[Rfam]
RNA: mir-160 microRNA precursor family
RNA sequence: ACUUGCCUGGCUCCCUGUAUGCCAACUGAGGAGCUCCUCAGAGACCUUGACAGGCUCCGUAGCUGGCAUUCAGGGGGCCAUGCAGGA
Numbered sequence: 001a002c003u004u005g006c007c008u009g010g011c012u013c014c015c016u017g018u019a020u021g022c023c024a025a026c027u028g029a030g031g032a033g034c035u036c037c038u039c040a041g042a043g044a045c046c047u048u049g050a051c052a053g054g055c056u057c058c059g060u061a062g063c064u065g066g067c068a069u070u071c072a073g074g075g076g077g078c079c080a081u082g083c084a085g086g087a
Stems, first nucleotide, its partner, number of pairs: 002086005008080007016072002019069006027061002